[Rfam]
RNA sequence: AAGCGAGGACGGCCUCGUUACGCUGACAUCAAUCGGGGACGACCCUG
Numbered sequence: 001a002a003g004c005g006a007g008g009a010c011g012g013c014c015u016c017g018u019u020a021c022g023c024u025g026a027c028a029u030c031a032a033u034c035g036g037g038g039a040c041g042a043c044c045c046u047g
Base pairs, nucleotide, nucleotide: 002019003018004017005016006015007014008013034047035046036045037044038043
The family of this 47-nucleotide RNA from Nitrosomonas sp. Nm58 is "Guanidine-II riboswitch aptamer (mini-ykkC)". The organism belongs to Nitrosomonas, within Bacteria. The match comes from Rfam's covariance-model search (40 bits).